[Rfam]
RNA sequence: GGCUGGUCUGAGUGCAGCGGUGUUUACAACUAAUUUAUCACAACCAGUUACAGAUUUAUUUGUUCCUUCUCCAUUCCCACUUGACUGGCACUAUU
Numbered sequence: 001g002g003c004u005g006g007u008c009u010g011a012g013u014g015c016a017g018c019g020g021u022g023u024u025u026a027c028a029a030c031u032a033a034u035u036u037a038u039c040a041c042a043a044c045c046a047g048u049u050a051c052a053g054a055u056u057u058a059u060u061u062g063u064u065c066c067u068u069c070u071c072c073a074u075u076c077c078c079a080c081u082u083g084a085c086u087g088g089c090a091c092u093a094u095u
Base pairs, nucleotide, nucleotide: 001091002089003088004087005086006085007084008083010082011081014078020077022076028064029063030062032060033059
About this RNA: Rfam assigns this 95-nucleotide RNA from Pongo abelii to the family "Y RNA". The family's consensus secondary structure is taken from published work. The family's RNA type in Rfam is non-coding RNA gene.